[Rfam]
Rfam assigns this 138-nucleotide RNA sequence from Propithecus coquereli to the family "Small nucleolar RNA SNORA43". Rfam describes the family as follows. ACA43 is a member of the H/ACA class of snoRNA that guide the sites of modification of uridines to pseudouridines.
RNA sequence: GCUGACCUAGACCUGCCAGCACCACAGGUCUGGCUGCUCUGCUGUGUCUGUGACAUCGGGGAAAAGAGAAAGUGGCUAUUUCUGCACUCAUUGUUUAGAAACCAGUGAGUACUAAGAAUGGUUUAUAGGCUUACAUUU
Number, nucleotide and partner (000 for none) at each position: 001g000002c000003u063004g000005a000006c060007c059008u058009a000010g056011a000012c000013c000014u000015g000016c000017c000018a000019g000020c000021a000022c000023c000024a051025c050026a049027g048028g000029u000030c000031u000032g000033g000034c000035u000036g000037c000038u000039c000040u000041g000042c000043u000044g000045u000046g000047u000048c027049u026050g025051u024052g000053a000054c000055a000056u010057c000058g008059g007060g006061g000062a000063a003064a000065a000066g000067a000068g000069a000070a000071a000072g000073u000074g130075g000076c128077u000078a000079u000080u000081u000082c121083u120084g119085c000086a000087c116088u115089c000090a000091u000092u111093g110094u109095u108096u107097a106098g000099a000100a000101a000102c000103c000104a000105g000106u097107g096108a095109g094110u093111a092112c000113u000114a000115a088116g087117a000118a000119u084120g083121g082122u000123u000124u000125a000126u000127a000128g076129g000130c074131u000132u000133a000134c000135a000136u000137u000138u000
Taxonomically the source falls in Propithecus (Eukaryota, Metazoa, Eutheria, Indriidae).